RNA sequence: CGUCGCUGCCACGCUCCCAGGGAGGUGCGGCAGACCGGGGCCCUCCGCCCCGGACCGAAGAACACAAAGCGGCCAUGCCCUCCUGACGGGACGUGGCCCUACAAGAAAUUUCGGAUGUACGCGCACCUCCGGUCGAGGUGUGGAAUGAC
Numbered sequence: 001c002g003u004c005g006c007u008g009c010c011a012c013g014c015u016c017c018c019a020g021g022g023a024g025g026u027g028c029g030g031c032a033g034a035c036c037g038g039g040g041c042c043c044u045c046c047g048c049c050c051c052g053g054a055c056c057g058a059a060g061a062a063c064a065c066a067a068a069g070c071g072g073c074c075a076u077g078c079c080c081u082c083c084u085g086a087c088g089g090g091a092c093g094u095g096g097c098c099c100u101a102c103a104a105g106a107a108a109u110u111u112c113g114g115a116u117g118u119a120c121g122c123g124c125a126c127c128u129c130c131g132g133u134c135g136a137g138g139u140g141u142g143g144a145a146u147g148a149c
Stems, first nucleotide, its partner, number of pairs: 006033005012027004035053007122142008